[Rfam]
mir-342 microRNA precursor family: a 99-nucleotide RNA sequence from Carlito syrichta. Pairs were carried over by alignment from the consensus structure, which was predicted with RNAalifold. For this family Rfam cites "Identification and characteristics of cattle microRNAs by homology searching and small RNA cloning" (Long and Chen, Biochem Genet, 2009). The organism belongs to Carlito, within Eukaryota. Gene Ontology terms of the family: cellular response to forskolin, miRNA-mediated post-transcriptional gene silencing and cellular response to amino acid stimulus.
RNA sequence: AGACCUGGGCUCAAGGUGAGGGGUGCUAUCUGUGACUGAGGGACAUGUUCAUAGCAAUUGUCUCACACAGAAAUCGCACCCGUCACCUUGGCCCGCUUA
Numbered sequence: 001a002g003a004c005c006u007g008g009g010c011u012c013a014a015g016g017u018g019a020g021g022g023g024u025g026c027u028a029u030c031u032g033u034g035a036c037u038g039a040g041g042g043a044c045a046u047g048u049u050c051a052u053a054g055c056a057a058u059u060g061u062c063u064c065a066c067a068c069a070g071a072a073a074u075c076g077c078a079c080c081c082g083u084c085a086c087c088u089u090g091g092c093c094c095g096c097u098u099a
Stems, first nucleotide, its partner, number of pairs: 012090005018084002021081006029071006037065005